RNA sequence: AAAAAGGGUCGGUUGGCUAAAUAUGCCACUCUUUCUGCGUGGCGAGUGCUGUAUGGCUAUUAAGUCAUAUGGCCAACAUAAUUUGUGUAACUUUAUAGGGUUGGCUCCUUGGCCGACCCUCAA
Numbered sequence: 001a002a003a004a005a006g007g008g009u010c011g012g013u014u015g016g017c018u019a020a021a022u023a024u025g026c027c028a029c030u031c032u033u034u035c036u037g038c039g040u041g042g043c044g045a046g047u048g049c050u051g052u053a054u055g056g057c058u059a060u061u062a063a064g065u066c067a068u069a070u071g072g073c074c075a076a077c078a079u080a081a082u083u084u085g086u087g088u089a090a091c092u093u094u095a096u097a098g099g100g101u102u103g104g105c106u107c108c109u110u111g112g113c114c115g116a117c118c119c120u121c122a123a
Base pairs, nucleotide, nucleotide: 008077009076011074012073014028015027016026017025029048031046032045033044035042036041049072050071051070052069053068054067055066097120098119099118100117101116102115103114104113106112107111

U11 spliceosomal RNA: a 123-nucleotide sequence from Solanum commersonii. A search with the family's covariance model found it, with a score of 58 bits. The source organism's lineage runs through Eukaryota, Streptophyta, Spermatophyta, eudicotyledons and Solanum. Its Rfam clan is "U1 clan". Rfam 15.1 lists 2,595 matches to the family in 1,202 species.